Overview: The record is an 80-nucleotide RNA from Ruminiclostridium sufflavum, which matches "pemK RNA" in Rfam. It scores 64 bits against the family's covariance model. By type it is a cis-regulatory element.

RNA sequence: AUAAUGAUACUUUUGCCCAGCCAUAGACAUCGCAAUGGGGGCAGCCUGCGGAGAUCCCGGAGGAGGUGAGAAUCCUAUGA
Number, nucleotide and partner (000 for none) at each position: 001a000002u000003a000004a000005u000006g000007a000008u000009a000010c000011u000012u077013u044014u043015g042016c041017c040018c039019a000020g000021c000022c000023a000024u000025a000026g000027a000028c000029a000030u000031c000032g000033c000034a000035a000036u000037g000038g000039g018040g017041g016042c015043a014044g013045c063046c062047u061048g000049c059050g058051g057052a000053g000054a000055u000056c000057c051058c050059g049060g000061a047062g046063g045064a076065g075066g074067u000068g000069a000070g000071a000072a000073u000074c066075c065076u064077a012078u000079g000080a000